Record summary: A member of the RNA family "Small nucleolar RNA U109" from Amphiprion percula, 155 nucleotides long. A reference for the family is Gu et al. (2005), "A novel experimental approach for systematic identification of box H/ACA snoRNAs from eukaryotes", Nucleic Acids Res. The organism belongs to Amphiprion, within Eukaryota. The family's RNA type in Rfam is H/ACA-box small nucleolar RNA. Pairs were carried over by alignment from the consensus structure, which was predicted with WAR.
RNA sequence: AUGCAUGUUUUGACCCUGGGCCUUUCUUGGCUUCUCCUUUUCUAUGGAGUGGACAAGUACAAACAUGCUAGAUUAACAUUUAAACAUUUGGGAGUUAACAGGGCCACCAGUCUAUCAAGGUCAGGCUGAGUUGGUAGUAUAAUACUCCCACAUUC
Numbered sequence: 001a002u003g004c005a006u007g008u009u010u011u012g013a014c015c016c017u018g019g020g021c022c023u024u025u026c027u028u029g030g031c032u033u034c035u036c037c038u039u040u041u042c043u044a045u046g047g048a049g050u051g052g053a054c055a056a057g058u059a060c061a062a063a064c065a066u067g068c069u070a071g072a073u074u075a076a077c078a079u080u081u082a083a084a085c086a087u088u089u090g091g092g093a094g095u096u097a098a099c100a101g102g103g104c105c106a107c108c109a110g111u112c113u114a115u116c117a118a119g120g121u122c123a124g125g126c127u128g129a130g131u132u133g134g135u136a137g138u139a140u141a142a143u144a145c146u147c148c149c150a151c152a153u154u155c
Stems, first nucleotide, its partner, number of pairs: 003068006027053002030050005091148004103135002107130001108128006